A member of the RNA family "PyrR binding site" from Bacillus mesophilus, 124 nucleotides long. Pairs were carried over by alignment from the consensus structure, which is taken from published work. This family represents the PyrR binding site and terminator structure. This RNA structure is found upstream of a variety of genes involved in pyrimidine biosynthesis and transport. The alignment also includes a portion of the antiterminator structure. A reference for the family is Bonner et al. (2001), "Molecular recognition of pyr mRNA by the Bacillus subtilis attenuation regulatory protein PyrR", Nucleic Acids Res. The match comes from Rfam's covariance-model search (63 bits).
[Rfam]
RNA sequence: UGGCCCUUUAACACAGUCCUGUGAGGCUGAGAAGGAAACGGAGUAAGUAUAAAAGGGGGUACCCUUGUAUCCUUUUUAUACUCUAAGUCUAUCCUCUCACUGACAGUGAGAGGAUUUUUUUAUA
Dot-bracket structure: ....(((((....(((((......))))).)))))..........((((((((((((.............))))))))))))....(...((((((((((.....))))))))))...).....